The record is an 82-nucleotide sequence from Propithecus coquereli, which matches "mir-3660 microRNA precursor family" in Rfam.

[Rfam]
RNA sequence: ACUGGGCAAAUUUAAAAUGCUCUUCUGUCAUUGUAAUAGUUCAUGUGGGCACCAACAGGAGAGCAUUUUAAUUCUGUCAAGU
Numbered sequence: 001a002c003u004g005g006g007c008a009a010a011u012u013u014a015a016a017a018u019g020c021u022c023u024u025c026u027g028u029c030a031u032u033g034u035a036a037u038a039g040u041u042c043a044u045g046u047g048g049g050c051a052c053c054a055a056c057a058g059g060a061g062a063g064c065a066u067u068u069u070a071a072u073u074c075u076g077u078c079a080a081g082u
Stems, first nucleotide, its partner, number of pairs: 001082003005078004010073001012071017032051003036046003
A search with the family's covariance model found it, with a score of 87 bits.
Rfam links the family to the GO terms RISC complex and miRNA-mediated post-transcriptional gene silencing.
The source organism's lineage runs through Eukaryota, Chordata, Theria, Eutheria and Propithecus.